[Rfam]
RNA sequence: UUCGACAAGGGCAAAACCGGUGCGAGCCGGUGACGCAAAGCCACGGGGCCUUCAGGGUCAGCCGGGCUUCCGAAC
Numbered sequence: 001u002u003c004g005a006c007a008a009g010g011g012c013a014a015a016a017c018c019g020g021u022g023c024g025a026g027c028c029g030g031u032g033a034c035g036c037a038a039a040g041c042c043a044c045g046g047g048g049c050c051u052u053c054a055g056g057g058u059c060a061g062c063c064g065g066g067c068u069u070c071c072g073a074a075c
Stems, first nucleotide, its partner, number of pairs: 003072002011036002016031006034061001039068004044064003047059003
Notes
This 75-nucleotide RNA sequence from Arthrobacter crusticola belongs to the Rfam family "c-di-GMP-I-GGC riboswitch aptamer". The family's consensus secondary structure is taken from published work. The family has 40 seed sequences and 1,298 matches in Rfam 15.1. A search with the family's covariance model found it, with a score of 61 bits. A reference for the family is Weinberg et al. (2017), "Bioinformatic analysis of riboswitch structures uncovers variant classes with altered ligand specificity", Proc Natl Acad Sci U S A. NCBI's taxonomy places the organism under Bacteria, Actinomycetota, Micrococcales, Micrococcaceae, Arthrobacter.